[Rfam]
RNA sequence: UUGCCCAUUUGACCACCACUUUUUCACUUCAUAUAUUCAAUGGCUAUGCUUCUGGAAUAAAAUGUAAUUGCCAUGGUCUGAUGGACAAAGAGUGGCCAUGUCUUUUUUUUCCUAUAUGAAAAGGCAAAAUAAUCUAAC
Dot-bracket structure: ....(((........(((......................))).........)))..............(((...............(.((..................)).).........))).............